[Rfam]
Bag-1 internal ribosome entry site (IRES): a 370-nucleotide sequence from Catagonus wagneri. From the family's description: This family represents the bag-1 internal ribosome entry site (IRES). When expressed the BAG-1 protein is known to enhance the anti-apoptotic properties of Bcl-2. Although bag-1 translation usually occurs via a cap-dependent mechanism it has been found to contain a IRES in its 5' UTR. Translation via the IRES has been found to be common following heat shock when cap-dependent scanning is compromised.
Nucleotides: 370
Stems, first nucleotide, its partner, number of pairs: 020104008038093002041090002044052003061082005067076002144352006166189005205224006212217001257272003261268001
Number, partner (000 for none) and nucleotide at each position: 001000u002000g003000a004000g005000c006000g007000g008000a009000c010000a011000a012000c013000a014000a015000g016000c017000g018000c019000g020104g021103g022102u023101c024100u025099g026098g027097c028000g029000g030000a031000g032000c033000g034000c035000g036000g037000c038093g039092g040000a041090g042089c043000c044052c045051g046050g047000a048000g049000a050046c051045c052044g053000c054000g055000a056000g057000g058000c059000g060000a061082c062081c063080g064079g065078g066000a067076g068075c069000g070000g071000c072000u073000g074000g075068g076067c077000c078065c079064c080063c081062g082061g083000c084000g085000g086000c087000g088000c089042g090041c091000c092039c093038c094000u095000c096000g097027g098026c099025c100024g101023g102022g103021c104020c105000g106000g107000g108000a109000g110000c111000c112000g113000c114000g115000c116000c117000a118000g119000u120000c121000g122000g123000u124000g125000c126000c127000c128000u129000c130000a131000g132000c133000c134000g135000a136000a137000c138000g139000c140000g141000g142000u143000u144352c145351g146350c147349c148348u149347c150000c151000c152000u153000c154000c155000g156000a157000g158000c159000g160000a161000u162000c163000g164000g165000c166189u167188g168187u169186c170185c171000a172000g173000a174000g175000u176000g177000u178000g179000a180000c181000c182000a183000g184000a185170g186169g187168g188167c189166a190000u191000g192000c193000g194000g195000g196000a197000u198000c199000c200000a201000c202000c203000a204000a205224g206223g207222g208221u209220g210219c211000c212217g213000c214000c215000g216000c217212c218000u219210g220209c221208g222207c223206u224205c225000g226000c227000a228000g229000g230000c231000c232000g233000c234000g235000g236000g237000u238000g239000a240000a241000g242000a243000a244000g245000a246000a247000a248000g249000c250000g251000a252000g253000g254000c255000c256000u257272c258271g259270c260000c261268c262000g263000g264000c265000c266000c267000g268261g269000a270259g271258c272257g273000a274000a275000g276000a277000g278000g279000u280000g281000u282000c283000c284000c285000g286000g287000a288000g289000c290000g291000a292000a293000g294000a295000g296000g297000u298000g299000c300000c301000c302000c303000g304000g305000a306000g307000c308000g309000a310000a311000g312000a313000g314000g315000u316000g317000g318000c319000c320000c321000g322000g323000a324000g325000c326000g327000a328000a329000g330000a331000g332000g333000u334000g335000g336000c337000c338000c339000u340000g341000a342000g343000u344000g345000a346000a347149g348148a349147g350146g351145u352144g353000g354000c355000c356000c357000g358000g359000a360000g361000c362000g363000a364000g365000g366000a367000a368000a369000u370000g
The organism belongs to Catagonus, within Eukaryota. Rfam 15.1 lists 248 matches to the family in 165 species.